[Rfam]
RNA sequence: UGGACGGUCCGUUACUGGCGUUGAGGUGGAGCACCACCGGGGAGCGGCCCGACGACCGUCGAUGCCGUACGCCUGGGCGACCCUC
Numbered sequence: 001u002g003g004a005c006g007g008u009c010c011g012u013u014a015c016u017g018g019c020g021u022u023g024a025g026g027u028g029g030a031g032c033a034c035c036a037c038c039g040g041g042g043a044g045c046g047g048c049c050c051g052a053c054g055a056c057c058g059u060c061g062a063u064g065c066c067g068u069a070c071g072c073c074u075g076g077g078c079g080a081c082c083c084u085c
Stems, first nucleotide, its partner, number of pairs: 003053001005051003009047004015041002017073005026037004063079004
A member of the RNA family "ZMP/ZTP riboswitch aptamer (pfl RNA motif)" from Micromonospora inyonensis, 85 nucleotides long.